Rfam assigns this 99-nucleotide RNA sequence from Ochotona princeps to the family "Small nucleolar RNA SNORD124". NCBI's taxonomy places the organism under Eukaryota, Vertebrata, Gnathostomata, Ochotonidae, Ochotona. It is one of the family's seed sequences. The family's RNA type in Rfam is C/D-box small nucleolar RNA. A reference for the family is Yang et al. (2006), "snoSeeker: an advanced computational package for screening of guide and orphan snoRNA genes in the human genome", Nucleic Acids Res.
RNA sequence: UGACCCCAAGGAAGGAAUGAUGUUCCCCUGAGACUCAAGAAAAGGAUUCUGAGCCUUGGCUUUGAGGGUGCCACUUGAUCCCUGACCUUCCUGGGCAAA
Numbered sequence: 001u002g003a004c005c006c007c008a009a010g011g012a013a014g015g016a017a018u019g020a021u022g023u024u025c026c027c028c029u030g031a032g033a034c035u036c037a038a039g040a041a042a043a044g045g046a047u048u049c050u051g052a053g054c055c056u057u058g059g060c061u062u063u064g065a066g067g068g069u070g071c072c073a074c075u076u077g078a079u080c081c082c083u084g085a086c087c088u089u090c091c092u093g094g095g096c097a098a099a
Stems, first nucleotide, its partner, number of pairs: 009092007